The family of this 109-nucleotide RNA sequence from Clostridium pasteurianum is "SAM riboswitch aptamer (S box leader)". The SAM riboswitch is found upstream of a number of genes which code for proteins involved in methionine or cysteine biosynthesis in Gram-positive bacteria. A search with the family's covariance model found it, with a score of 83 bits.

[Rfam]
RNA sequence: GUCUUAUCAAGAGAGGUGGAGGGACUGGCCCAGUGAAACCCGACAACCGGCAUUUGAUUUUAAAAUGUGGCGGUGUUAAUUCCAGCAGAAGUUUUCUGAAAGAUAAGAG
Numbered sequence: 001g002u003c004u005u006a007u008c009a010a011g012a013g014a015g016g017u018g019g020a021g022g023g024a025c026u027g028g029c030c031c032a033g034u035g036a037a038a039c040c041c042g043a044c045a046a047c048c049g050g051c052a053u054u055u056g057a058u059u060u061u062a063a064a065a066u067g068u069g070g071c072g073g074u075g076u077u078a079a080u081u082c083c084a085g086c087a088g089a090a091g092u093u094u095u096c097u098g099a100a101a102g103a104u105a106a107g108a109g
Stems, first nucleotide, its partner, number of pairs: 002108007013041001015040003021031003025085004042077004047073002050068006081101001086098005
Dot-bracket structure: .(((((((....(.(((...(((.[[[[)))......))))((((.((.((((((.......))))))...))))))...(]]]](((((...)))))..)))))))).